[Rfam]
RNA: MIR159 microRNA precursor family
RNA sequence: GGCGAAAAAGAUGAGCUCCCUUCGACCCAAUCCAGGAGGGGAAGUGGUCGGAUGCAGCUGCCGGUUCAUGGAUACCUGUCCGGUGCAUGCAGUUCGGUUGAGCCUGCGCACUUUGUAUAGGUUUUGCAUGACCCGGGAGAUGAACCUACCAGCAUCUUUCCCUCGUGCUUGGAUUGAAGGGAGCUCUCUCUCUCUAUCUC
Numbered sequence: 001g002g003c004g005a006a007a008a009a010g011a012u013g014a015g016c017u018c019c020c021u022u023c024g025a026c027c028c029a030a031u032c033c034a035g036g037a038g039g040g041g042a043a044g045u046g047g048u049c050g051g052a053u054g055c056a057g058c059u060g061c062c063g064g065u066u067c068a069u070g071g072a073u074a075c076c077u078g079u080c081c082g083g084u085g086c087a088u089g090c091a092g093u094u095c096g097g098u099u100g101a102g103c104c105u106g107c108g109c110a111c112u113u114u115g116u117a118u119a120g121g122u123u124u125u126g127c128a129u130g131a132c133c134c135g136g137g138a139g140a141u142g143a144a145c146c147u148a149c150c151a152g153c154a155u156c157u158u159u160c161c162c163u164c165g166u167g168c169u170u171g172g173a174u175u176g177a178a179g180g181g182a183g184c185u186c187u188c189u190c191u192c193u194c195u196a197u198c199u200c
Stems, first nucleotide, its partner, number of pairs: 013186008023176003027172003036163001058139002061136003067130004075121001